[Rfam]
RNA sequence: UCAUCCCGCGCGGGAGAGCCCUGACGCCGGACCGGUGACGGACCGUCGGCGAGCAGGGCGCCGAAGGGGCAACCCUCCCCGGAACCUCUCAGGCACCAGGACCGCGCGGGCGAG
Numbered sequence: 001u002c003a004u005c006c007c008g009c010g011c012g013g014g015a016g017a018g019c020c021c022u023g024a025c026g027c028c029g030g031a032c033c034g035g036u037g038a039c040g041g042a043c044c045g046u047c048g049g050c051g052a053g054c055a056g057g058g059c060g061c062c063g064a065a066g067g068g069g070c071a072a073c074c075c076u077c078c079c080c081g082g083a084a085c086c087u088c089u090c091a092g093g094c095a096c097c098a099g100g101a102c103c104g105c106g107c108g109g110g111c112g113a114g
Stems, first nucleotide, its partner, number of pairs: 006109008019058004060094003063090002067088003073082002
RNA: Glycine riboswitch aptamer